[Rfam]
Annotation
A member of the RNA family "Group II catalytic intron D1-D4-6" from Candidatus Brocadia fulgida, 237 nucleotides long. The literature on the family includes a 2001 paper in EMBO J by Chu et al., "Control of branch-site choice by a group II intron". Rfam's curators write: Group II introns are found in rRNA, tRNA and mRNA of organelles in fungi, plants and protists, and also in mRNA in bacteria. It scores 80 bits against the family's covariance model.
RNA sequence: AAAGUCCCGUCCGGGGAAUUAUCCGUUCACCCCGGUAGUUCAAGGGAGCGGCGUCUGAGCAAUCAGGGGUCGUAAGUUCCCAAUUGGCAAAACCGCAGGCCGCAGCGCAAGCGAACCUACAAGUAGCCUCGUCAAUACAAAUUGAAGAUGCCGACCCCGUGGACACGUGGGGAAGGCCGAAGAUUGCAGACUCAGGCAACGGAAGGAGUCUGUAAUAUCUUCCGGGGUAGCAGGGGC
Numbered sequence: 001a002a003a004g005u006c007c008c009g010u011c012c013g014g015g016g017a018a019u020u021a022u023c024c025g026u027u028c029a030c031c032c033c034g035g036u037a038g039u040u041c042a043a044g045g046g047a048g049c050g051g052c053g054u055c056u057g058a059g060c061a062a063u064c065a066g067g068g069g070u071c072g073u074a075a076g077u078u079c080c081c082a083a084u085u086g087g088c089a090a091a092a093c094c095g096c097a098g099g100c101c102g103c104a105g106c107g108c109a110a111g112c113g114a115a116c117c118u119a120c121a122a123g124u125a126g127c128c129u130c131g132u133c134a135a136u137a138c139a140a141a142u143u144g145a146a147g148a149u150g151c152c153g154a155c156c157c158c159g160u161g162g163a164c165a166c167g168u169g170g171g172g173a174a175g176g177c178c179g180a181a182g183a184u185u186g187c188a189g190a191c192u193c194a195g196g197c198a199a200c201g202g203a204a205g206g207a208g209u210c211u212g213u214a215a216u217a218u219c220u221u222c223c224g225g226g227g228u229a230g231c232a233g234g235g236g237c
Stems, first nucleotide, its partner, number of pairs: 012034005019025001020205001022203002036090001038088002044081002046078002048073005054067005123231001124229001126228006144222006150177003155171003183216011
The organism belongs to Candidatus Brocadia, within Bacteria. Its family is annotated with Group II intron splicing in the Gene Ontology.